RNA sequence: AGCUGCGUGGUGAACACAGAGCGAACUAUUCUUUCGCCUUUUACUAAAGAAUACCGUGUGUUCUCCACAUUCAGCAGCAUACACCAAUUUUUUUAGGGGUUUUCCACCAU
Numbered sequence: 001a002g003c004u005g006c007g008u009g010g011u012g013a014a015c016a017c018a019g020a021g022c023g024a025a026c027u028a029u030u031c032u033u034u035c036g037c038c039u040u041u042u043a044c045u046a047a048a049g050a051a052u053a054c055c056g057u058g059u060g061u062u063c064u065c066c067a068c069a070u071u072c073a074g075c076a077g078c079a080u081a082c083a084c085c086a087a088u089u090u091u092u093u094u095a096g097g098g099g100u101u102u103u104c105c106a107c108c109a110u
Base pairs, nucleotide, nucleotide: 003077004076005075006074008067009066010065012063013062014061015060016059017058018057027053028052029051030050031049032048033047034046